[Rfam]
This 46-nucleotide RNA sequence from Microcaecilia unicolor belongs to the Rfam family "Histone 3' UTR stem-loop". The family's RNA type in Rfam is cis-regulatory element. Rfam describes the family as follows. The mRNAs of metazoan histone genes lack a poly-A tail. 3' end processing occurs at a site between a highly conserved stem-loop (modelled by this family) and a purine rich region around 20 nts downstream (the histone downstream element, or HDE). The stem-loop is bound by a 31 kDa stem-loop binding protein (SLBP - also termed the histone hairpin binding protein, or HBP). Together with U7 snRNA binding of the HDE, SLBP binding nucleate s the formation of the processing complex. The histone 3' UTR stem-loop is also involved in nucleocytoplasmic transport of the mRNA, and in stability regulation and translation efficiency in the cytoplasm. Lineage of the source: Eukaryota > Deuterostomia > Amphibia > Siphonopidae > Microcaecilia. For this family Rfam cites "The sequence of the stem and flanking sequences at the 3' end of histone mRNA are critical determinants for the binding of the stem-loop binding protein" (Williams and Marzluff, Nucleic Acids Res, 1995).
Nucleotides: 046
Base pairs, nucleotide, nucleotide: 006021007020008019009018010017011016
Number, partner (000 for none) and nucleotide at each position: 001000a002000c003000a004000a005000a006021g007020g008019u009018c010017u011016u012000u013000c014000u015000a016011a017010a018009g019008a020007c021006c022000a023000c024000a025000g026000a027000u028000u029000u030000u031000u032000u033000c034000a035000a036000a037000g038000g039000u040000u041000u042000a043000u044000u045000u046000u